[Rfam]
Purine riboswitch aptamer: a 102-nucleotide RNA from Lihuaxuella thermophila. Its Rfam clan is "Purine riboswitches". Lineage of the source: Bacteria > Bacillati > Caryophanales > Thermoactinomycetaceae > Lihuaxuella. From the family's description: Riboswitches are metabolite binding domains within certain messenger RNAs that serve as precision sensors for their corresponding targets.

RNA sequence: CCGAAUAUUAAAGACUUAGCUCAUAUAAUCGUAAGGAUAUGGCUUACGAGUCUCUACCGGACUACCGUAAAUAGUUCGACUAUGAGUGGGUCAGGCAAGGAC
Dot-bracket structure: ..................(((((((...(((((((.......)))))))........(((((((.......)))))))..)))))))...............
Numbered sequence: 001c002c003g004a005a006u007a008u009u010a011a012a013g014a015c016u017u018a019g020c021u022c023a024u025a026u027a028a029u030c031g032u033a034a035g036g037a038u039a040u041g042g043c044u045u046a047c048g049a050g051u052c053u054c055u056a057c058c059g060g061a062c063u064a065c066c067g068u069a070a071a072u073a074g075u076u077c078g079a080c081u082a083u084g085a086g087u088g089g090g091u092c093a094g095g096c097a098a099g100g101a102c
Stems, first nucleotide, its partner, number of pairs: 019087007029049007058078007